[Rfam]
RNA sequence: AGCCUUCCCUCUGCCAACCAAACGGCCUAUAUUGAAAAGGUCCGGUCUCGGCCGGACUAUGGGGAUAAACGCGCACGUAAUAAGCGGACUGGACCCGGGUGCGAUUCCCGGCGGCUCCACCAAUCUCUUCCGGGUUAUCACGGAACUGCAUGGGGCCGAUCAGCAUCGACAGACGUGUAAAGGUGUUAUGCUUUCUCUCGGCGUGGCUCACCGUUUCGGGCCGCUAAACUAAAUGCGAACGAUAACUUCGCUGAAGAGUUCGCCAUCGCCGCGUAAUGCGGUGCGGGUGAUCUCGCCUCUUAAGUCCUAGGGGUUCAGAUCCCUAGGCGGGGCCCGGAGGGAGCCUGCCAACAGAAUCCCUCCACU
Numbered sequence: 001a002g003c004c005u006u007c008c009c010u011c012u013g014c015c016a017a018c019c020a021a022a023c024g025g026c027c028u029a030u031a032u033u034g035a036a037a038a039g040g041u042c043c044g045g046u047c048u049c050g051g052c053c054g055g056a057c058u059a060u061g062g063g064g065a066u067a068a069a070c071g072c073g074c075a076c077g078u079a080a081u082a083a084g085c086g087g088a089c090u091g092g093a094c095c096c097g098g099g100u101g102c103g104a105u106u107c108c109c110g111g112c113g114g115c116u117c118c119a120c121c122a123a124u125c126u127c128u129u130c131c132g133g134g135u136u137a138u139c140a141c142g143g144a145a146c147u148g149c150a151u152g153g154g155g156c157c158g159a160u161c162a163g164c165a166u167c168g169a170c171a172g173a174c175g176u177g178u179a180a181a182g183g184u185g186u187u188a189u190g191c192u193u194u195c196u197c198u199c200g201g202c203g204u205g206g207c208u209c210a211c212c213g214u215u216u217c218g219g220g221c222c223g224c225u226a227a228a229c230u231a232a233a234u235g236c237g238a239a240c241g242a243u244a245a246c247u248u249c250g251c252u253g254a255a256g257a258g259u260u261c262g263c264c265a266u267c268g269c270c271g272c273g274u275a276a277u278g279c280g281g282u283g284c285g286g287g288u289g290a291u292c293u294c295g296c297c298u299c300u301u302a303a304g305u306c307c308u309a310g311g312g313g314u315u316c317a318g319a320u321c322c323c324u325a326g327g328c329g330g331g332g333c334c335c336g337g338a339g340g341g342a343g344c345c346u347g348c349c350a351a352c353a354g355a356a357u358c359c360c361u362c363c364a365c366u
Base pairs, nucleotide, nucleotide: 040057041056042055043054044053045052046051061198062197063196064195065194071191072190073186074185075184076183085175086174089172090171091170095111096110097109098108099107112158113157114156115155116154117153118152199213200212201211204223205222206221208219209218330346331345332344333343336363337362338361339360340359341358